Source information:
This 75-nucleotide RNA sequence from Eucalyptus grandis belongs to the Rfam family "Small nucleolar RNA R160". On this family, see Chen et al., Nucleic Acids Res 2003: "The high diversity of snoRNAs in plants: identification and comparative study of 120 snoRNA genes from Oryza sativa". The organism belongs to Eucalyptus, within Eukaryota. snoR160 is a C/D box small nucleolar RNA, which acts as a methylation guide for 25S ribosomal RNA in plants. snoR160 has been alternatively named snoZ270 in rice. Rfam 15.1 lists 799 matches to the family in 221 species. Its family is annotated with RNA processing and nucleolus in the Gene Ontology.
RNA sequence: AGCAAAUGAUGAGCUUAUGAAACUGAAUUUCAUGUUGAAAUCAACAUCAUAUGGUCUUCAAAGUUCUCUGAUGCU
Dot-bracket structure: ((((...................................................................))))
The match comes from Rfam's covariance-model search (54 bits).